[Rfam]
RNA sequence: GUUCAUCUUCAGGGCAGGGUGCAAUUCCCGACCGGUGGUUAAAGUCCGCGACCUACCGUUAUGGUAGUUGAUUCGGUGAAAUUCCGAAACCGACAGUUAAAGUCUGGUAUAUAGAAGAUUGGG
Numbered sequence: 001g002u003u004c005a006u007c008u009u010c011a012g013g014g015c016a017g018g019g020u021g022c023a024a025u026u027c028c029c030g031a032c033c034g035g036u037g038g039u040u041a042a043a044g045u046c047c048g049c050g051a052c053c054u055a056c057c058g059u060u061a062u063g064g065u066a067g068u069u070g071a072u073u074c075g076g077u078g079a080a081a082u083u084c085c086g087a088a089a090c091c092g093a094c095a096g097u098u099a100a101a102g103u104c105u106g107g108u109a110u111a112u113a114g115a116a117g118a119u120u121g122g123g
Stems, first nucleotide, its partner, number of pairs: 003121001005119006017029003031103002033092002035049004044090002053067002072088005094106003